Small nucleolar RNA SNORA77: a 132-nucleotide RNA from Nothoprocta perdicaria. Rfam 15.1 lists 843 matches to the family in 607 species. Rfam classes the family as an H/ACA-box small nucleolar RNA. On this family, see Schattner et al., RNA 2006: "A computational screen for mammalian pseudouridylation guide H/ACA RNAs". NCBI's taxonomy places the organism under Eukaryota, Eumetazoa, Euteleostomi, Archosauria, Nothoprocta.
[Rfam]
RNA sequence: GCAGACUCACUCUGUGCCGAACUGCAGUCCUCAGUUCAGGUGCUUUUUCUGUCUGCAAAAGUAGUAGUUCAUGGGUGUGAAACAUGCUUCUUUUAUGUAGAAGCCUGUUACAGUUGCUCUUGGAACAUUGCU
Numbered sequence: 001g002c003a004g005a006c007u008c009a010c011u012c013u014g015u016g017c018c019g020a021a022c023u024g025c026a027g028u029c030c031u032c033a034g035u036u037c038a039g040g041u042g043c044u045u046u047u048u049c050u051g052u053c054u055g056c057a058a059a060a061g062u063a064g065u066a067g068u069u070c071a072u073g074g075g076u077g078u079g080a081a082a083c084a085u086g087c088u089u090c091u092u093u094u095a096u097g098u099a100g101a102a103g104c105c106u107g108u109u110a111c112a113g114u115u116g117c118u119c120u121u122g123g124a125a126c127a128u129u130g131c132u
Base pairs, nucleotide, nucleotide: 001056002055003054004053005052006051014043015042016041017040018039019037020036022034023033024032069123070122071121073119074118075117078112079111080109081108084106086104087103088102
It scores 50 bits against the family's covariance model. From the family's description: ACA63 (SNORA77) is a member of the H/ACA class of snoRNAs that guide the sites of modification of uridines to pseudouridines. This snoRNA was identified by computational screening and its expression in mouse experimentally verified by Northern blot and primer extension analysis. ACA63 is proposed to guide the pseudouridylation of 18S rRNA U814. Pairs were carried over by alignment from the consensus structure, which was predicted with RNAalifold.